Lysine riboswitch aptamer: a 172-nucleotide RNA from Clostridium sulfidigenes.
The family's consensus secondary structure is taken from published work.
RNA sequence: AUCAUAAGUAGAGGCGCUUAUAAAUUGGUAACUGAUAAAUGUUAAGGAGAAUACCCUCUGAUGUUACAGUGAAUUGUUUAUAGGCCGAAAGGAUGCAAAGGUAUUUUGUAUUACUUGGGGAUAAGACACAAGGUUUUAUCACUGCCAUGUUAUAUGGAGAGCUAUUUAUGGA
Numbered sequence: 001a002u003c004a005u006a007a008g009u010a011g012a013g014g015c016g017c018u019u020a021u022a023a024a025u026u027g028g029u030a031a032c033u034g035a036u037a038a039a040u041g042u043u044a045a046g047g048a049g050a051a052u053a054c055c056c057u058c059u060g061a062u063g064u065u066a067c068a069g070u071g072a073a074u075u076g077u078u079u080a081u082a083g084g085c086c087g088a089a090a091g092g093a094u095g096c097a098a099a100g101g102u103a104u105u106u107u108g109u110a111u112u113a114c115u116u117g118g119g120g121a122u123a124a125g126a127c128a129c130a131a132g133g134u135u136u137u138a139u140c141a142c143u144g145c146c147a148u149g150u151u152a153u154a155u156g157g158a159g160a161g162c163u164a165u166u167u168a169u170g171g172a
Stems, first nucleotide, its partner, number of pairs: 006167006016085009031070004035064003089116003092112008117143002120140008145157005